[Rfam]
RNA sequence: AUAAUAGUCACAUAGGGUCAUCGUUGAUGACAUUAUGCCCAGAGAGCUACGACCUUCAAAGCUCAGUACAACGUUGUUGUAUGGUCAUCCUAAGCUGAUAAAAGCGCCCGGCAGCAUCAGCAGUUACUGGCAACAGUGAUGGGU
Numbered sequence: 001a002u003a004a005u006a007g008u009c010a011c012a013u014a015g016g017g018u019c020a021u022c023g024u025u026g027a028u029g030a031c032a033u034u035a036u037g038c039c040c041a042g043a044g045a046g047c048u049a050c051g052a053c054c055u056u057c058a059a060a061g062c063u064c065a066g067u068a069c070a071a072c073g074u075u076g077u078u079g080u081a082u083g084g085u086c087a088u089c090c091u092a093a094g095c096u097g098a099u100a101a102a103a104g105c106g107c108c109c110g111g112c113a114g115c116a117u118c119a120g121c122a123g124u125u126a127c128u129g130g131c132a133a134c135a136g137u138g139a140u141g142g143g144u
Base pairs, nucleotide, nucleotide: 011037012036013035014034017031018030019029020028021027022026044064045063046062047061048060051086052085053084054083066082067081068080069079070078071077116144117143118142123140124139125138126137127136128135129134
Overview
The family of this 144-nucleotide RNA sequence from Gammaproteobacteria bacterium ESL0073 is "radC RNA". By type it is a cis-regulatory element. The family's consensus secondary structure is taken from published work.